[Rfam]
RNA: MIR7504 microRNA precursor family
Organism: Gossypium harknessii
RNA sequence: AAUAAUAGAAUGACAAAUUAGAUUUUUUUUUUUUCAUGAUAUUCAGCUUUUUCUCCUAAAAAAAUUCAAAUCUAACUAAAAAUACUAAAAAUCAGGAGGAAAAAUCAGAUUUGUCAUUCUCCUAUU
Numbered sequence: 001a002a003u004a005a006u007a008g009a010a011u012g013a014c015a016a017a018u019u020a021g022a023u024u025u026u027u028u029u030u031u032u033u034u035c036a037u038g039a040u041a042u043u044c045a046g047c048u049u050u051u052u053c054u055c056c057u058a059a060a061a062a063a064a065u066u067c068a069a070a071u072c073u074a075a076c077u078a079a080a081a082a083u084a085c086u087a088a089a090a091a092u093c094a095g096g097a098g099g100a101a102a103a104a105u106c107a108g109a110u111u112u113g114u115c116a117u118u119c120u121c122c123u124a125u126u
Stems, first nucleotide, its partner, number of pairs: 001126004007120013021106007033098003037094004042089002045086002049082004